Background: The family of this 74-nucleotide RNA sequence from Didymodactylos carnosus is "Small nucleolar RNA SNORD103/SNORD85". The base pairs follow the family's consensus structure. By type it is a C/D-box small nucleolar RNA. The source organism's lineage runs through Eukaryota, Opisthokonta, Protostomia, Gnathifera and Didymodactylos. A search with the family's covariance model found it, with a score of 46 bits.
RNA sequence: GCAAGCUAUGAUGAAUCUACUUGCCCUCUCUUAAAACAAACAGUGCUGAGAAUUGUAGUUAUGACUGAGCUUGC
Numbered sequence: 001g002c003a004a005g006c007u008a009u010g011a012u013g014a015a016u017c018u019a020c021u022u023g024c025c026c027u028c029u030c031u032u033a034a035a036a037c038a039a040a041c042a043g044u045g046c047u048g049a050g051a052a053u054u055g056u057a058g059u060u061a062u063g064a065c066u067g068a069g070c071u072u073g074c
Stems, first nucleotide, its partner, number of pairs: 001074006